[Rfam]
RNA sequence: GGUUGUAAAUACGAGGCCAUAGCAGAAGUGCUCAUGGCAUGGCCACCUCAGAUUCAAAUGAAUCUGCAAAUUCUGCU
Numbered sequence: 001g002g003u004u005g006u007a008a009a010u011a012c013g014a015g016g017c018c019a020u021a022g023c024a025g026a027a028g029u030g031c032u033c034a035u036g037g038c039a040u041g042g043c044c045a046c047c048u049c050a051g052a053u054u055c056a057a058a059u060g061a062a063u064c065u066g067c068a069a070a071u072u073c074u075g076c077u
Base pairs, nucleotide, nucleotide: 013046015044016043017042018041021077022076023075024074025073026072027071028040029039030038049066050065051064052063053062054061055060
Shown here is a 77-nucleotide sequence from Crocodylus porosus, a member of the family "Mammalian CPEB3 ribozyme". NCBI's taxonomy places the organism under Eukaryota, Chordata, Sauropsida, Longirostres, Crocodylus.